[Rfam]
RNA sequence: CUUCCCAUUGAUUUGCUGCUCUAGUCUUUCAGUGAUCAGAGCAGUUAUACGCGUGGGAGAGAACAAUAAUAGGCCGUGCGCUACCACGAGAUGGAGUAACCAUUUCAUCUCUUCUGCGCGGUCCAGACACUG
Numbered sequence: 001c002u003u004c005c006c007a008u009u010g011a012u013u014u015g016c017u018g019c020u021c022u023a024g025u026c027u028u029u030c031a032g033u034g035a036u037c038a039g040a041g042c043a044g045u046u047a048u049a050c051g052c053g054u055g056g057g058a059g060a061g062a063a064c065a066a067u068a069a070u071a072g073g074c075c076g077u078g079c080g081c082u083a084c085c086a087c088g089a090g091a092u093g094g095a096g097u098a099a100c101c102a103u104u105u106c107a108u109c110u111c112u113u114c115u116g117c118g119c120g121g122u123c124c125a126g127a128c129a130c131u132g
Base pairs, nucleotide, nucleotide: 003058004057005056006055007054008053015045016044017043018042019041020040021039023036025035026034070125072123073122074121075120076119079118080117081116083115088111089110090109091108092107093106094105095104096103097102